[Rfam]
RNA sequence: CUCCUCGAAAUAGCUUUAGGGCUAGCGUUUAAAAAGUCUACUGGAGGUAAAGCACUGAAUUUCCUAGGGGGGCGAGAGCCUUACCGAAGAAUAUCAAACUAAGAAUGCCAGAAAGAUAUUUUAAGCAGUCAGACUAUGUGUGAUAAGAUUCAUAGUCAAAAGGGAAAGAGCCCAGACCAACAGCUAAGGUCCCAAAGUGUGUGUUAAGUGGAAAAGGAUGUGAGAUUUCGAAGACAACUAGGAUGUUGGCUUAGAAGCAGCCACUCAUUCAAAGAGUGCGUAAUAGCUCACUAGUCGAGAGAUCUUGCGCCGAAAAUGUCCGGGGCUAAAACACACCACCGAAGCUAUGGAAUCAAUUUAUUGAUUGGUAGAGGAGCAUCUAAACAGCGAUGAAGUAGUAUCGAAAGAAGCUAUGGAGUGGUUUAGAGAGAGAAU
Numbered sequence: 001c002u003c004c005u006c007g008a009a010a011u012a013g014c015u016u017u018a019g020g021g022c023u024a025g026c027g028u029u030u031a032a033a034a035a036g037u038c039u040a041c042u043g044g045a046g047g048u049a050a051a052g053c054a055c056u057g058a059a060u061u062u063c064c065u066a067g068g069g070g071g072g073c074g075a076g077a078g079c080c081u082u083a084c085c086g087a088a089g090a091a092u093a094u095c096a097a098a099c100u101a102a103g104a105a106u107g108c109c110a111g112a113a114a115g116a117u118a119u120u121u122u123a124a125g126c127a128g129u130c131a132g133a134c135u136a137u138g139u140g141u142g143a144u145a146a147g148a149u150u151c152a153u154a155g156u157c158a159a160a161a162g163g164g165a166a167a168g169a170g171c172c173c174a175g176a177c178c179a180a181c182a183g184c185u186a187a188g189g190u191c192c193c194a195a196a197g198u199g200u201g202u203g204u205u206a207a208g209u210g211g212a213a214a215a216g217g218a219u220g221u222g223a224g225a226u227u228u229c230g231a232a233g234a235c236a237a238c239u240a241g242g243a244u245g246u247u248g249g250c251u252u253a254g255a256a257g258c259a260g261c262c263a264c265u266c267a268u269u270c271a272a273a274g275a276g277u278g279c280g281u282a283a284u285a286g287c288u289c290a291c292u293a294g295u296c297g298a299g300a301g302a303u304c305u306u307g308c309g310c311c312g313a314a315a316a317u318g319u320c321c322g323g324g325g326c327u328a329a330a331a332c333a334c335a336c337c338a339c340c341g342a343a344g345c346u347a348u349g350g351a352a353u354c355a356a357u358u359u360a361u362u363g364a365u366u367g368g369u370a371g372a373g374g375a376g377c378a379u380c381u382a383a384a385c386a387g388c389g390a391u392g393a394a395g396u397a398g399u400a401u402c403g404a405a406a407g408a409a410g411c412u413a414u415g416g417a418g419u420g421g422u423u424u425a426g427a428g429a430g431a432g433a434a435u
Base pairs, nucleotide, nucleotide: 001376002375003374004373005372006371011024012023013022014021015020026128027126028125029124030123031122032121033120036119037116038115039113041111042110043109044108051100052099056096057095058094061091062090063089067085068084069082070081071080072079073078132157133156134155135154136153137152138151140149141148162173163172164171177350178349179348182346183345184344188340189339190338197337199336200335201334202333203332204331216311217310220308221307222306223305224304225303226302227301228300229299237295238294239293240292241291243268244267245266248262249261250260269273274289278287279286351366352365353364354363355362356361377430379427380426381425382424383423384422385421387419388418395414396413397412398411399410401408402407

Overview:
A member of the RNA family "Bacterial large subunit ribosomal RNA" from Candidatus Epulonipiscium viviparus, 435 nucleotides of a longer RNA. NCBI's taxonomy places the organism under Bacteria, Clostridia, Lachnospirales, Lachnospiraceae, Candidatus Epulonipiscium.